The family of this 279-nucleotide RNA from Colobus angolensis is "Mason-Pfizer monkey virus packaging signal". It scores 186 bits against the family's covariance model. This family represents a group of sequences that are related to the Mason-Pfizer monkey virus (MPMV) packaging signal. The packaging signal is located in the 5' UTR and is required for specific RNA encapsidation. Its family is annotated with viral genome packaging in the Gene Ontology.
RNA sequence: UGGCGCCCGAACAGGGACCUGGACACGGGGGAGAAAAGUGAGGAAGAAGGCACUAAAGUCAGCCGAAAGUGAAAGUGGAAGAAAAAUUCCUCCGGACGUCGCGGGAGCCUGCUGCGUUGGAACCAGAGGUGAGUAACAGUGCCUGAUUAUGGGACAAGAAUUAAGCCAGCAUCAGAUUUAUGUAGGGCAAUUAAAAGAGGCUUUAAAAACAUGAGGAGUAAAGGUUAAAAGUAAGGAUUUGUUUAAAUUUUUUUAUUUUGUAAACAAGAGGGAACCAUU
Numbered sequence: 001u002g003g004c005g006c007c008c009g010a011a012c013a014g015g016g017a018c019c020u021g022g023a024c025a026c027g028g029g030g031g032a033g034a035a036a037a038g039u040g041a042g043g044a045a046g047a048a049g050g051c052a053c054u055a056a057a058g059u060c061a062g063c064c065g066a067a068a069g070u071g072a073a074a075g076u077g078g079a080a081g082a083a084a085a086a087u088u089c090c091u092c093c094g095g096a097c098g099u100c101g102c103g104g105g106a107g108c109c110u111g112c113u114g115c116g117u118u119g120g121a122a123c124c125a126g127a128g129g130u131g132a133g134u135a136a137c138a139g140u141g142c143c144u145g146a147u148u149a150u151g152g153g154a155c156a157a158g159a160a161u162u163a164a165g166c167c168a169g170c171a172u173c174a175g176a177u178u179u180a181u182g183u184a185g186g187g188c189a190a191u192u193a194a195a196a197g198a199g200g201c202u203u204u205a206a207a208a209a210c211a212u213g214a215g216g217a218g219u220a221a222a223g224g225u226u227a228a229a230a231g232u233a234a235g236g237a238u239u240u241g242u243u244u245a246a247a248u249u250u251u252u253u254u255a256u257u258u259u260g261u262a263a264a265c266a267a268g269a270g271g272g273a274a275c276c277a278u279u
Base pairs, nucleotide, nucleotide: 006031007030008029015024039047087131089129091126097119100116101115102114103113104112139155140154142153143152144151145150162205163204164203165201166200167199213253214252215251216250217249218248219247222240223239224238225237226236266279267278

By type it is a cis-regulatory element.